[Rfam]
RNA sequence: ACACGAGAAGGGAGGUGGUCCGAAAUCAUUAGUGACAUAUGGACAUGUGAGGUGGCUGCUAGCUAGCAGCACCGGGAGUCAUUCCUGGCACGGAGCACUCGCUCCACGCGCAGAUCGAGACGAUCGCGUGCGCUGGCGAAUUCCCAGCAGUCACCCGGCCCCCGAGCUCCUAGGCCGUCCGCCUAGGUUUACCGGCUCGGGGGCCGUUCCAU
Numbered sequence: 001a002c003a004c005g006a007g008a009a010g011g012g013a014g015g016u017g018g019u020c021c022g023a024a025a026u027c028a029u030u031a032g033u034g035a036c037a038u039a040u041g042g043a044c045a046u047g048u049g050a051g052g053u054g055g056c057u058g059c060u061a062g063c064u065a066g067c068a069g070c071a072c073c074g075g076g077a078g079u080c081a082u083u084c085c086u087g088g089c090a091c092g093g094a095g096c097a098c099u100c101g102c103u104c105c106a107c108g109c110g111c112a113g114a115u116c117g118a119g120a121c122g123a124u125c126g127c128g129u130g131c132g133c134u135g136g137c138g139a140a141u142u143c144c145c146a147g148c149a150g151u152c153a154c155c156c157g158g159c160c161c162c163c164g165a166g167c168u169c170c171u172a173g174g175c176c177g178u179c180c181g182c183c184u185a186g187g188u189u190u191a192c193c194g195g196c197u198c199g200g201g202g203g204c205c206g207u208u209c210c211a212u
Base pairs, nucleotide, nucleotide: 014060015059016058017057018056019055062137063136064135065134066133067132069131070130071129072128075125076124156206157205158204159203160202161201162200163199164198165197166196167195168194169187170186171185172184173183174182
Dot-bracket structure: .............((((((...................................)))))).((((((.((((..((...............................................))..))))))))))..................(((((((((((((((((((.......))))))......)))))))))))))......